[Rfam]
RNA sequence: AGGCAGAGCACGUUCUGGGGCCACGUGUCUGUGGCCCCCGCCUAGGCACUCGGUGACCACUGGAGCCGGCCUGUGGCCUGGGG
Numbered sequence: 001a002g003g004c005a006g007a008g009c010a011c012g013u014u015c016u017g018g019g020g021c022c023a024c025g026u027g028u029c030u031g032u033g034g035c036c037c038c039c040g041c042c043u044a045g046g047c048a049c050u051c052g053g054u055g056a057c058c059a060c061u062g063g064a065g066c067c068g069g070c071c072u073g074u075g076g077c078c079u080g081g082g083g
Stems, first nucleotide, its partner, number of pairs: 004080001006078001008077002011075002018072004028063002031060002034057001036055001038053001
RNA: NoRC associated RNA, pRNA
Organism: Sciurus carolinensis